Rfam assigns this 88-nucleotide RNA sequence from Streptomyces sp. H-KF8 to the family "Streptomyces RNA 3202". The literature on the family includes a 2011 paper in RNA Biol by Vockenhuber et al., "Deep sequencing-based identification of small non-coding RNAs in Streptomyces coelicolor". By type it is a small RNA. Lineage of the source: Bacteria > Actinomycetes > Kitasatosporales > Streptomycetaceae > Streptomyces.

[Rfam]
RNA sequence: CCACGUCCCGUCGCACCACCCCCCCGGCGCCGGGACUUCCCAAGCCGGGUCCGGCACCCUCCCCCCGGGUGCCGGACCCGGUUUUUCC
Numbered sequence: 001c002c003a004c005g006u007c008c009c010g011u012c013g014c015a016c017c018a019c020c021c022c023c024c025c026g027g028c029g030c031c032g033g034g035a036c037u038u039c040c041c042a043a044g045c046c047g048g049g050u051c052c053g054g055c056a057c058c059c060u061c062c063c064c065c066c067g068g069g070u071g072c073c074g075g076a077c078c079c080g081g082u083u084u085u086u087c088c
Stems, first nucleotide, its partner, number of pairs: 005036006012029003042084018